[Rfam]
Nucleotides: 094
Stems, first nucleotide, its partner, number of pairs: 005084006018075001021072004026067005032061001034055001036053007
Number, partner (000 for none) and nucleotide at each position: 001000g002000u003000u004000u005084g006083u007082u008081u009080g010079u011000g012000u013000g014000u015000g016000g017000a018075u019000u020000a021072u022071g023070u024069u025000c026067a027066g028065c029064a030063c031000c032061a033000a034055g035000g036053a037052c038051a039050g040049g041048u042047a043000u044000g045000c046000u047042u048041g049040c050039u051038u052037g053036u054000g055034u056000g057000u058000g059000g060000a061032u062000u063030g064029u065028g066027u067026u068000c069024a070023g071022c072021a073000c074000c075018a076000a077000g078000g079010a080009c081008a082007g083006g084005u085000u086000u087000g088000c089000u090000u091000g092000u093000u094000u
Shown here is a 94-nucleotide RNA from Branchiostoma belcheri, a member of the family "mir-2060 microRNA precursor family". The base pairs follow the family's consensus structure, which was predicted with RNAalifold. Gene Ontology terms of the family: RISC complex and miRNA-mediated post-transcriptional gene silencing. The family has 7 seed sequences and 3,696 matches in Rfam 15.1.